About this RNA: The family of this 76-nucleotide RNA sequence from Ameiurus melas is "mir-7563 microRNA precursor family". A search with the family's covariance model found it, with a score of 82 bits. Pairs were carried over by alignment from the consensus structure, which was predicted with RNAalifold.

RNA sequence: ACCGCGUACUUACCUACUAUAUAGUAGGAGAAAUGCAUGUAUCUCGGCUACUAUAGUGUAGGUAAGUACACGGUUU
Numbered sequence: 001a002c003c004g005c006g007u008a009c010u011u012a013c014c015u016a017c018u019a020u021a022u023a024g025u026a027g028g029a030g031a032a033a034u035g036c037a038u039g040u041a042u043c044u045c046g047g048c049u050a051c052u053a054u055a056g057u058g059u060a061g062g063u064a065a066g067u068a069c070a071c072g073g074u075u076u
Stems, first nucleotide, its partner, number of pairs: 001074004006069010017058001020055008030045002033042003